[Rfam]
RNA sequence: UUCACCUUUUAAAAAAGUCCAGAGAGGCUAAAAAGGGUGUUAUGGGCGAACCGGCUUAUUCAACAUGCACAUAAAUUCACGCACACAGCGGAUUUAUGCCGGCAAGUUCAUGCAAAGCACCCUGUUGAACAGACAGGGUGUUUUUUUCUA
Numbered sequence: 001u002u003c004a005c006c007u008u009u010u011a012a013a014a015a016a017g018u019c020c021a022g023a024g025a026g027g028c029u030a031a032a033a034a035g036g037g038u039g040u041u042a043u044g045g046g047c048g049a050a051c052c053g054g055c056u057u058a059u060u061c062a063a064c065a066u067g068c069a070c071a072u073a074a075a076u077u078c079a080c081g082c083a084c085a086c087a088g089c090g091g092a093u094u095u096a097u098g099c100c101g102g103c104a105a106g107u108u109c110a111u112g113c114a115a116a117g118c119a120c121c122c123u124g125u126u127g128a129a130c131a132g133a134c135a136g137g138g139u140g141u142u143u144u145u146u147u148c149u150a
Base pairs, nucleotide, nucleotide: 005036006035007034008033009032016029017028018027019026043110044109045108046107047106051102052101053100054099055098114144115143116142117141118140119139120138121137122136123135124134125133126132
RNA: PyrR binding site